[Rfam]
RNA sequence: CGAGCGCACAGCCCGUUCGCGACACCGUUUGGCAGAGGCGGGGGAACCACUUUUGGACUUUGUUGCUCAGGGUCCUAGGGGUUAAGACGCACUUCUCGGGUAAGUACCGAGAAGCGUCCGGGUGACUCCCAUCCGAAUCCGACAGCUCACCUCGUAGGCACUGGGAGAGGUUAU
Numbered sequence: 001c002g003a004g005c006g007c008a009c010a011g012c013c014c015g016u017u018c019g020c021g022a023c024a025c026c027g028u029u030u031g032g033c034a035g036a037g038g039c040g041g042g043g044g045a046a047c048c049a050c051u052u053u054u055g056g057a058c059u060u061u062g063u064u065g066c067u068c069a070g071g072g073u074c075c076u077a078g079g080g081g082u083u084a085a086g087a088c089g090c091a092c093u094u095c096u097c098g099g100g101u102a103a104g105u106a107c108c109g110a111g112a113a114g115c116g117u118c119c120g121g122g123u124g125a126c127u128c129c130c131a132u133c134c135g136a137a138u139c140c141g142a143c144a145g146c147u148c149a150c151c152u153c154g155u156a157g158g159c160a161c162u163g164g165g166a167g168a169g170g171u172u173a174u
Stems, first nucleotide, its partner, number of pairs: 001157001005037001007035001038155006048078001079140003087117004120134004